The family of this 160-nucleotide RNA sequence from Bagarius yarrelli is "Small Cajal body specific RNA 1". Rfam classes the family as a small Cajal body RNA. Rfam links the family to the GO terms nucleolus, RNA processing and Cajal body.

RNA sequence: UUGCACUAGAUACUAACCUGACUGUCUGCUGCCCAGUUUUUAUACUGGUGCACUUCAAUGGCUUUCGGGUCAGAACAGUGCUAUAAAAAACACAAGCCCUGUGAUUUAAGCACUGAGAGGGAAGUCACUACCUCAGCUGUUAUUACUCAGGGACACAGGC
Dot-bracket structure: ..(((((........(((.((..(((.(.((((.(((......))).).))).).....)))..)).)))......)))))..............(.(.................((.((....)).)).(((.((...(....))).)))).)......

Rfam describes the family as follows. scaRNAs are a specific class of small nuclear RNAs which localise to the Cajal bodies and guide the modification of RNA polymerase II transcribed spliceosomal RNAs U1, U2, U4, U5 and U12. The base pairs follow the family's consensus structure, which was predicted with RNAalifold.